[Rfam]
RNA sequence: UGGCUGUUAUGGUCGAAGUGGAAGGCGGCCCUUGCUAUUCUUAUUUCCUGCUGUUCCAUGUCCGAGGUGGAUUUAUCCGCCUCGACCCAGUGCGUCGCCCAGUGCGAACGUCGCGGUGGCCACCCACUCGUAUGGGAAACCUACGAUGCUGGAACCCCCUUGUGGCCCUAAGCAAUUGGAGAUGAUACUUCAGGGAGGACUCACUCUGCAGAGGCAUCUUCACCGUCGCGUGGCGGACUGGAUUACGAUCGUAUUGGGUUGGGGCAGCAUUUGAGAUGAAGAAGCCAACUUCUAUUUUU
Numbered sequence: 001u002g003g004c005u006g007u008u009a010u011g012g013u014c015g016a017a018g019u020g021g022a023a024g025g026c027g028g029c030c031c032u033u034g035c036u037a038u039u040c041u042u043a044u045u046u047c048c049u050g051c052u053g054u055u056c057c058a059u060g061u062c063c064g065a066g067g068u069g070g071a072u073u074u075a076u077c078c079g080c081c082u083c084g085a086c087c088c089a090g091u092g093c094g095u096c097g098c099c100c101a102g103u104g105c106g107a108a109c110g111u112c113g114c115g116g117u118g119g120c121c122a123c124c125c126a127c128u129c130g131u132a133u134g135g136g137a138a139a140c141c142u143a144c145g146a147u148g149c150u151g152g153a154a155c156c157c158c159c160u161u162g163u164g165g166c167c168c169u170a171a172g173c174a175a176u177u178g179g180a181g182a183u184g185a186u187a188c189u190u191c192a193g194g195g196a197g198g199a200c201u202c203a204c205u206c207u208g209c210a211g212a213g214g215c216a217u218c219u220u221c222a223c224c225g226u227c228g229c230g231u232g233g234c235g236g237a238c239u240g241g242a243u244u245a246c247g248a249u250c251g252u253a254u255u256g257g258g259u260u261g262g263g264g265c266a267g268c269a270u271u272u273g274a275g276a277u278g279a280a281g282a283a284g285c286c287a288a289c290u291u292c293u294a295u296u297u298u299u
Stems, first nucleotide, its partner, number of pairs: 001015004016297008027286003030281001032279003035275002049269009065082007088256006095248003099241005105235002108231004113226004120152003124148001126147001128146005134141002168172001177222007188213003195206003
RNA: Fungal signal recognition particle RNA